Shown here is a 218-nucleotide RNA from Durio zibethinus, a member of the family "Plant small nucleolar RNA U3".
Rfam's curators write: Small nucleolar RNAs (snoRNAs) are involved in the processing and modification of rRNA in the nucleolus. There are two main classes of snoRNAs: the box C/D class, and the box H/ACA class. U3 snoRNA is a member of the box C/D class.
The source organism's lineage runs through Eukaryota, Magnoliopsida, Gunneridae, Helicteroideae and Durio.
The family's consensus secondary structure is taken from published work.
Rfam 15.1 lists 3,759 matches to the family in 258 species.
Gene Ontology terms of the family: RNA processing and nucleolus.
Rfam classes the family as a C/D-box small nucleolar RNA.
[Rfam]
RNA sequence: ACGACCUUACUUGAACAGGAUCUGUUCUAUAGGCUCGUACCUCUGUAUCCUUUAGCACAAAUGAGACAGGAUCUGAAGUCUGGUUGUUGAAACAUGGCCUUGUGAUCGAGCGUGAUUAACUGCUUCCUAGUCCCUGUUUACCAGCUGGUGCAGUAGAGGAUCGUUCUCAGCAUGGUGUUUAACCCAGCUAGGAUGGUCACAAGGUUGUCUGACAGACU
Numbered sequence: 001a002c003g004a005c006c007u008u009a010c011u012u013g014a015a016c017a018g019g020a021u022c023u024g025u026u027c028u029a030u031a032g033g034c035u036c037g038u039a040c041c042u043c044u045g046u047a048u049c050c051u052u053u054a055g056c057a058c059a060a061a062u063g064a065g066a067c068a069g070g071a072u073c074u075g076a077a078g079u080c081u082g083g084u085u086g087u088u089g090a091a092a093c094a095u096g097g098c099c100u101u102g103u104g105a106u107c108g109a110g111c112g113u114g115a116u117u118a119a120c121u122g123c124u125u126c127c128u129a130g131u132c133c134c135u136g137u138u139u140a141c142c143a144g145c146u147g148g149u150g151c152a153g154u155a156g157a158g159g160a161u162c163g164u165u166c167u168c169a170g171c172a173u174g175g176u177g178u179u180u181a182a183c184c185c186a187g188c189u190a191g192g193a194u195g196g197u198c199a200c201a202a203g204g205u206u207g208u209c210u211g212a213c214a215g216a217c218u
Stems, first nucleotide, its partner, number of pairs: 001038002003035001005033003013027006043069004048064002051061003078217005097205012109165004119154005125148002127144002130141002167191001169189003174184003
The family is grouped with related families in Rfam's "U3 clan".
For this family Rfam cites "The uRNA database" (Zwieb, Nucleic Acids Res, 1997).